[Rfam]
RNA sequence: CAAGCAAUCAAUAUCCAAACACUACUCUCAAGCUUUUUUCAAGGUUCCUUACCUACCAAAUCUAUAUUCAUCAUGUCUCCCUGCACCUGCAACUGCUGCUCCGGCGAGUGCAACUCCUGCGCUUGCUCCACCUGCACUGUAUGUCAUUACUUACU
Dot-bracket structure: .................................................................................(((....(((.....)))....)))...(((......((....))......)))....................